[Rfam]
RNA sequence: UUGUCCGUGAGAUAUGUUUGAUAUUCUUGGUUGUAUUAAUAAGCUCAACCGGAAGUCAAACAUAUUUUUACGGCCAA
Numbered sequence: 001u002u003g004u005c006c007g008u009g010a011g012a013u014a015u016g017u018u019u020g021a022u023a024u025u026c027u028u029g030g031u032u033g034u035a036u037u038a039a040u041a042a043g044c045u046c047a048a049c050c051g052g053a054a055g056u057c058a059a060a061c062a063u064a065u066u067u068u069u070a071c072g073g074c075c076a077a
Stems, first nucleotide, its partner, number of pairs: 005073005011066012024053002029050005
The family of this 77-nucleotide RNA sequence from Orchesella cincta is "mir-190 microRNA precursor family".
It scores 70 bits against the family's covariance model.
The organism belongs to Orchesella, within Eukaryota.
The literature on the family includes a 2006 paper in Nucleic Acids Res by Kloosterman et al., "Cloning and expression of new microRNAs from zebrafish".